[Rfam]
RNA sequence: UUCCCCGUUCGAUGUUCUGAUGAAUAUGUUGUCGUAAACGGUUCGCCAAAACCGCUUGUUUGAUUGCUUAGUACCCAAUCAAUUUACCACACAUUUUCCAAUUGGAACUGACGACGGGUUUUUCG
Number, nucleotide and partner (000 for none) at each position: 001u000002u000003c000004c118005c117006c116007g115008u114009u113010c000011g000012a000013u000014g108015u107016u106017c105018u104019g103020a102021u101022g098023a097024a096025u000026a000027u093028g092029u091030u000031g090032u089033c000034g087035u086036a085037a084038a000039c054040g053041g052042u051043u050044c000045g000046c000047c000048a000049a000050a043051a042052c041053c040054g039055c000056u000057u000058g000059u000060u082061u081062g080063a079064u078065u077066g076067c000068u000069u000070a000071g000072u000073a000074c000075c000076c066077a065078a064079u063080c062081a061082a060083u000084u037085u036086a035087c034088c000089a032090c031091a029092c028093a027094u000095u000096u024097u023098c022099c000100a000101a021102u020103u019104g018105g017106a016107a015108c014109u000110g000111a000112c000113g009114a008115c007116g006117g005118g004119u000120u000121u000122u000123u000124c000125g000

This 125-nucleotide RNA from Vibrio parahaemolyticus belongs to the Rfam family "MtlS RNA". Rfam links the family to the GO term mannitol transport. The family's consensus secondary structure was predicted with WAR. It is annotated as a small RNA. A reference for the family is Mustachio et al. (2012), "The Vibrio cholerae mannitol transporter is regulated post-transcriptionally by the MtlS small RNA", Journal of Bacteriology. Lineage of the source: Bacteria > Pseudomonadati > Pseudomonadota > Vibrionaceae > Vibrio parahaemolyticus.